[Rfam]
Rfam assigns this 75-nucleotide sequence from Centropus unirufus to the family "mir-1759 microRNA precursor family".
It scores 60 bits against the family's covariance model.
The family's consensus secondary structure was predicted with RNAalifold.
RNA sequence: GCUACUCUAGGGUAGGAGGACAGAGGUGUUACUUUAUCAGCAGUCUUCUCUCCCAUCCUUCCCUGCAGAAGCAGC
Numbered sequence: 001g002c003u004a005c006u007c008u009a010g011g012g013u014a015g016g017a018g019g020a021c022a023g024a025g026g027u028g029u030u031a032c033u034u035u036a037u038c039a040g041c042a043g044u045c046u047u048c049u050c051u052c053c054c055a056u057c058c059u060u061c062c063c064u065g066c067a068g069a070a071g072c073a074g075c
Stems, first nucleotide, its partner, number of pairs: 001075003005071002008068001010066001011063002014059004018054002022051005028045001030043001033040002